[Rfam]
RNA sequence: GGGUCAAUGAUGAAAUCUUUCCCUUGUCUCUAAAGAGGUGCUGUCUUAAAAGUCAUGCUCAAUAGAGUUUCGCUGAGGAUC
Numbered sequence: 001g002g003g004u005c006a007a008u009g010a011u012g013a014a015a016u017c018u019u020u021c022c023c024u025u026g027u028c029u030c031u032a033a034a035g036a037g038g039u040g041c042u043g044u045c046u047u048a049a050a051a052g053u054c055a056u057g058c059u060c061a062a063u064a065g066a067g068u069u070u071c072g073c074u075g076a077g078g079a080u081c
Stems, first nucleotide, its partner, number of pairs: 001081002004078001005075002008072002
The record is an 81-nucleotide sequence from Carlito syrichta, which matches "Small nucleolar RNA SNORD115" in Rfam. It is annotated as a C/D-box small nucleolar RNA. Taxonomically the source falls in Carlito (Eukaryota, Deuterostomia, Amniota, Tarsiiformes). Gene Ontology terms of the family: nucleolus and RNA processing. The match comes from Rfam's covariance-model search (58 bits).